[Rfam]
A member of the RNA family "glmS glucosamine-6-phosphate activated ribozyme aptamer" from Bacillus sp. MRMR6, 160 nucleotides long. It scores 135 bits against the family's covariance model. Taxonomically the source falls in Bacillus (Bacteria, Bacillati, Bacilli, Caryophanales).

RNA sequence: AAGUAUCUAAAAGCGCCUGAACUAACCAGUGUGGGUUAGUUGACGAGGAGGAGGGUUAUCGAAUGUUCGGCGGAUACCUCCCGGUUGAACGCACAACCGUAAGUUUCUUCUUUAAAACAUUGAGGCAACUCACUGCACAAAGAGAGGAAAAUGCGCAUAC
Numbered sequence: 001a002a003g004u005a006u007c008u009a010a011a012a013g014c015g016c017c018u019g020a021a022c023u024a025a026c027c028a029g030u031g032u033g034g035g036u037u038a039g040u041u042g043a044c045g046a047g048g049a050g051g052a053g054g055g056u057u058a059u060c061g062a063a064u065g066u067u068c069g070g071c072g073g074a075u076a077c078c079u080c081c082c083g084g085u086u087g088a089a090c091g092c093a094c095a096a097c098c099g100u101a102a103g104u105u106u107c108u109u110c111u112u113u114a115a116a117a118c119a120u121u122g123a124g125g126c127a128a129c130u131c132a133c134u135g136c137a138c139a140a141a142g143a144g145a146g147g148a149a150a151a152u153g154c155g156c157a158u159a160c
Base pairs, nucleotide, nucleotide: 020041021040022039023038024037025036026035027034050081051080052079053078054077059070060069061068062067082099083098084097085096086095087094104150105149106148107147108146109145110144118135119134121132122131123130124129